Small nucleolar RNA SNORA57: a 138-nucleotide sequence from Coregonus sp. 'balchen'. About the family: U99 belongs to the H/ACA class of snoRNAs which are thought to guide the sites of modification of uridines to pseudouridines, the target for this family is unknown. The family's RNA type in Rfam is H/ACA-box small nucleolar RNA. On this family, see Vitali et al., Nucleic Acids Res 2003: "Identification of 13 novel human modification guide RNAs".

[Rfam]
RNA sequence: GCUCAAUUUUUUGGCAUACAUGUAGCUGCUAAGUACUUGUGUAUGUAAUGUACGGAGCUAGAACAAAGCCAGUGCUAUGUCUUCGGUACCAGUGUGUGUUAUCGUCUGCUGGUCCUAUCCUCAAUCGCUGGCACACUU
Numbered sequence: 001g002c003u004c005a006a007u008u009u010u011u012u013g014g015c016a017u018a019c020a021u022g023u024a025g026c027u028g029c030u031a032a033g034u035a036c037u038u039g040u041g042u043a044u045g046u047a048a049u050g051u052a053c054g055g056a057g058c059u060a061g062a063a064c065a066a067a068g069c070c071a072g073u074g075c076u077a078u079g080u081c082u083u084c085g086g087u088a089c090c091a092g093u094g095u096g097u098g099u100u101a102u103c104g105u106c107u108g109c110u111g112g113u114c115c116u117a118u119c120c121u122c123a124a125u126c127g128c129u130g131g132c133a134c135a136c137u138u
Base pairs, nucleotide, nucleotide: 001058002057003056004055015045016044017043018042019041020040022038024037025036070130071129072128073127074126089112090111091110092109093108094107